Qrr RNA: a 97-nucleotide RNA from Salinivibrio sp. KP-1. It is annotated as a small RNA.
RNA sequence: UGACCCUCAGGGGUCACCUAGCCAACUGACGUUGUUUGUGAGUUUUCACUCACUGAAACACUGUAGCCAACCUGUCAUUUAGGUUGGCUUUUUUUUA
Numbered sequence: 001u002g003a004c005c006c007u008c009a010g011g012g013g014u015c016a017c018c019u020a021g022c023c024a025a026c027u028g029a030c031g032u033u034g035u036u037u038g039u040g041a042g043u044u045u046u047c048a049c050u051c052a053c054u055g056a057a058a059c060a061c062u063g064u065a066g067c068c069a070a071c072c073u074g075u076c077a078u079u080u081a082g083g084u085u086g087g088c089u090u091u092u093u094u095u096u097a
Stems, first nucleotide, its partner, number of pairs: 001016006033063002038053006067087008
Overview: The match comes from Rfam's covariance-model search (75 bits). From the family's description: This family represents a set of small RNAs (the Qrr RNAs) that are thought to be involved in the regulation of quorum sensing in Vibrio species. Lineage of the source: Bacteria > Pseudomonadati > Gammaproteobacteria > Vibrionales > Salinivibrio.